[Rfam]
Nucleotides: 076
Stems, first nucleotide, its partner, number of pairs: 003045006021033005
Number, partner (000 for none) and nucleotide at each position: 001000c002000u003045c004044g005043u006042c007041g008040a009000g010000a011000g012000g013000c014000g015000c016000u017000g018000c019000a020000g021033c022032g023031g024030a025029c026000c027000c028000g029025g030024u031023c032022c033021g034000c035000c036000a037000c038000g039000c040008u041007c042006g043005a044004c045003g046000u047000c048000g049000g050000u051000u052000c053000c054000c055000a056000g057000a058000g059000u060000a061000a062000g063000g064000g065000c066000g067000c068000c069000u070000c071000u072000a073000u074000c075000u076000g
The record is a 76-nucleotide sequence from Dokdonella immobilis, which matches "SAH (S-adenosyl-L-homocysteine) riboswitch aptamer" in Rfam. The base pairs follow the family's consensus structure, which is taken from published work. Taxonomically the source falls in Dokdonella (Bacteria, Pseudomonadati, Gammaproteobacteria, Lysobacterales).